[Rfam]
RNA sequence: GCGCCGGGACGACCCGGCGCCUUUUUCAUCCUGUUGAAGGGGACGGCCCCU
Numbered sequence: 001g002c003g004c005c006g007g008g009a010c011g012a013c014c015c016g017g018c019g020c021c022u023u024u025u026u027c028a029u030c031c032u033g034u035u036g037a038a039g040g041g042g043a044c045g046g047c048c049c050c051u
Stems, first nucleotide, its partner, number of pairs: 001020008038051005
The record is a 51-nucleotide sequence from Oceanibaculum indicum, which matches "Guanidine-II riboswitch aptamer (mini-ykkC)" in Rfam. Lineage of the source: Bacteria > Pseudomonadota > Alphaproteobacteria > Oceanibaculaceae > Oceanibaculum indicum. The match comes from Rfam's covariance-model search (48 bits).